[Rfam]
RNA sequence: UAUUACCUUCGUGAUGUGGUUAUUGUAAUCUCAAUCUAUUGAUUACAUAGGGCAAUAUUUUAUUGCCCUUUUAUUUUA
Number, nucleotide and partner (000 for none) at each position: 001u000002a000003u000004u000005a000006c000007c000008u000009u000010c000011g000012u000013g000014a000015u000016g000017u000018g000019g000020u000021u000022a000023u000024u000025g046026u045027a044028a043029u042030c041031u000032c000033a000034a000035u000036c000037u000038a000039u000040u000041g030042a029043u028044u027045a026046c025047a000048u000049a069050g068051g067052g066053c065054a064055a063056u062057a061058u000059u000060u000061u057062a056063u055064u054065g053066c052067c051068c050069u049070u000071u000072u000073a000074u000075u000076u000077u000078a000
About this RNA: The record is a 78-nucleotide RNA sequence from Citrobacter rodentium, which matches "ABC transporter regulator" in Rfam. The sequence is in the family's curated seed alignment. A reference for the family is Chao et al. (2012), "An atlas of Hfq-bound transcripts reveals 3' UTRs as a genomic reservoir of regulatory small RNAs", EMBO J. Taxonomically the source falls in Citrobacter rodentium (Bacteria, Pseudomonadota, Gammaproteobacteria, Citrobacter).